[Rfam]
RNA sequence: CGUCUACAGGGGCAACCUUGUCGAUGAUUAAACAGAAGUCAGCAGACGGCAUAGUAGCCAAAUGCCCAGCGUAAUGGCUGGGACAGGGUGAAGGCC
Numbered sequence: 001c002g003u004c005u006a007c008a009g010g011g012g013c014a015a016c017c018u019u020g021u022c023g024a025u026g027a028u029u030a031a032a033c034a035g036a037a038g039u040c041a042g043c044a045g046a047c048g049g050c051a052u053a054g055u056a057g058c059c060a061a062a063u064g065c066c067c068a069g070c071g072u073a074a075u076g077g078c079u080g081g082g083a084c085a086g087g088g089u090g091a092a093g094g095c096c
Stems, first nucleotide, its partner, number of pairs: 001026002004023001006021006038047003048096003057089003066081002
Rfam assigns this 96-nucleotide RNA sequence from Methyloprofundus sp. to the family "Group II catalytic intron D1-D4-1". Rfam links the family to the GO term Group II intron splicing. Rfam describes the family as follows. Group II introns are found in rRNA, tRNA and mRNA of organelles in fungi, plants and protists, and also in mRNA in bacteria.